[Rfam]
RNA sequence: CGUAUCAAGGAGCGUUGCGACGAAACCCACAGCGGUUUUGCCAGGCUUGAUACCGUCACACCGCAACUGCGCUCACGUUAC
Numbered sequence: 001c002g003u004a005u006c007a008a009g010g011a012g013c014g015u016u017g018c019g020a021c022g023a024a025a026c027c028c029a030c031a032g033c034g035g036u037u038u039u040g041c042c043a044g045g046c047u048u049g050a051u052a053c054c055g056u057c058a059c060a061c062c063g064c065a066a067c068u069g070c071g072c073u074c075a076c077g078u079u080a081c
Stems, first nucleotide, its partner, number of pairs: 002053007021040006
SAH (S-adenosyl-L-homocysteine) riboswitch aptamer: an 81-nucleotide RNA from Herbaspirillum sp. Sphag64. The source organism's lineage runs through Bacteria, Pseudomonadota, Betaproteobacteria, Burkholderiales and Herbaspirillum. Rfam 15.1 lists 1,354 matches to the family in 1,132 species. A search with the family's covariance model found it, with a score of 58 bits.